This 56-nucleotide RNA sequence from Paraleonurus japonicus belongs to the Rfam family "Plastid-psbA-2 3UTR RNA". Plastid psbA-2 is a non-coding RNA (ncRNA) present in plastids. It was identified in inverted repeat sequences in the 3 prime untranslate region (3UTR) of photosystem II quinone-binding protein (psbA). Rfam classes the family as a cis-regulatory element.
Nucleotides: 056
Base pairs, nucleotide, nucleotide: 001052002051003050004049005048006047007046008045009044010043011042013040015038016037017036020035021034022033023032024031
Number, partner (000 for none) and nucleotide at each position: 001052u002051a003050a004049g005048g006047a007046g008045c009044a010043a011042u012000u013040a014000a015038c016037u017036c018000u019000u020035u021034c022033u023032u024031g025000u026000u027000u028000u029000a030000u031024c032023a033022a034021g035020a036017g037016g038015g039000g040013u041000u042011a043010u044009u045008g046007c047006u048005c049004c050003u051002u052001a053000u054000a055000u056000u